[Rfam]
RNA sequence: AGAGCAGGUUGCAAUAAAAGUGCUUCGCUUUAUGGAAGUACGGCCAUUAUCCUGAUGCAAGAAAAGUUAUGUAGUGUACCUUUCAUUUUGCCUACUGGGGGGCAAGUCAUGGCAGAUUGGCAUGAUGGCUU
Number, nucleotide and partner (000 for none) at each position: 001a000002g000003a056004g000005c054006a053007g052008g051009u000010u000011g000012c000013a000014a000015u000016a000017a000018a000019a000020g041021u040022g039023c038024u037025u036026c035027g000028c000029u000030u000031u000032a000033u000034g000035g026036a025037a024038g023039u022040a021041c020042g000043g000044c000045c000046a000047u000048u000049a000050u000051c008052c007053u006054g005055a000056u003057g000058c000059a000060a000061g000062a000063a000064a000065a000066g000067u125068u124069a123070u122071g121072u120073a000074g118075u000076g000077u115078a000079c000080c000081u000082u000083u109084c000085a107086u106087u000088u105089u104090g103091c102092c101093u100094a000095c000096u000097g000098g000099g000100g093101g092102g091103c090104a089105a088106g086107u085108c000109a083110u000111g000112g000113c000114a000115g077116a000117u000118u074119g000120g072121c071122a070123u069124g068125a067126u000127g000128g000129c000130u000131u000

Source information
Rfam assigns this 131-nucleotide RNA sequence from Marmota monax to the family "Small nucleolar RNA SNORA69". Taxonomically the source falls in Marmota (Eukaryota, Chordata, Teleostomi, Euarchontoglires). It is annotated as an H/ACA-box small nucleolar RNA. About the family: U69 is a member of the H/ACA class of small nucleolar RNAs (snoRNAs) which act as guides in the the modification of uridines to pseudouridines.